RNA sequence: GGGACCUGUACUCGUUGCGGGUCAACGAUGGUAAAAGA
Numbered sequence: 001g002g003g004a005c006c007u008g009u010a011c012u013c014g015u016u017g018c019g020g021g022u023c024a025a026c027g028a029u030g031g032u033a034a035a036a037g038a
Base pairs, nucleotide, nucleotide: 005031006030013027014026015025016024017023

The family of this 38-nucleotide RNA from Enterocloster bolteae is "Selenocysteine insertion sequence 4". Its family is annotated with selenocysteine incorporation in the Gene Ontology. The match comes from Rfam's covariance-model search (53 bits). On this family, see Graentzdoerffer et al., Arch Microbiol 2001: "Molecular analysis of the grd operon coding for genes of the glycine reductase and of the thioredoxin system from Clostridium sticklandii".